[Rfam]
RNA: Insulin-like growth factor II IRES
RNA sequence: GCGACCGGGCAUUGCCCCCAGUCUCCCCCAAAUUUGGGCAUUGUCUCCUGGUCUUCCAACGGACUGGGCGUUGCUCGCAGACACCGAGGACUGGCCCCGGGGUCUCGCUCACCUUCAGCAC
Numbered sequence: 001g002c003g004a005c006c007g008g009g010c011a012u013u014g015c016c017c018c019c020a021g022u023c024u025c026c027c028c029c030a031a032a033u034u035u036g037g038g039c040a041u042u043g044u045c046u047c048c049u050g051g052u053c054u055u056c057c058a059a060c061g062g063a064c065u066g067g068g069c070g071u072u073g074c075u076c077g078c079a080g081a082c083a084c085c086g087a088g089g090a091c092u093g094g095c096c097c098c099g100g101g102g103u104c105u106c107g108c109u110c111a112c113c114u115u116c117a118g119c120a121c
Stems, first nucleotide, its partner, number of pairs: 003023003007017004027038004043064004050056002065107004075102002078099001080097001